[Rfam]
RNA: Small nucleolar RNA psi18S-1377
RNA sequence: CCGUUUUUGUGUUAUUCGCUGUUUGUUUUAUUCAAAAUCAGUGAUUGUCUAACAGAACGUAAAUUAGAUUCCAGGCAGCUAAUCACUCCAUAAUGUUUAUCCUAAUUCAUCCAGGGAUUCUGCAUUACUAAAUGCAUGCUACAUGC
Numbered sequence: 001c002c003g004u005u006u007u008u009g010u011g012u013u014a015u016u017c018g019c020u021g022u023u024u025g026u027u028u029u030a031u032u033c034a035a036a037a038u039c040a041g042u043g044a045u046u047g048u049c050u051a052a053c054a055g056a057a058c059g060u061a062a063a064u065u066a067g068a069u070u071c072c073a074g075g076c077a078g079c080u081a082a083u084c085a086c087u088c089c090a091u092a093a094u095g096u097u098u099a100u101c102c103u104a105a106u107u108c109a110u111c112c113a114g115g116g117a118u119u120c121u122g123c124a125u126u127a128c129u130a131a132a133u134g135c136a137u138g139c140u141a142c143a144u145g146c
Stems, first nucleotide, its partner, number of pairs: 002059006011049001016044006092126005099118004
Dot-bracket structure: .((((((...(....((((((.................))))))....)....))))))................................(((((..((((............))))...)))))....................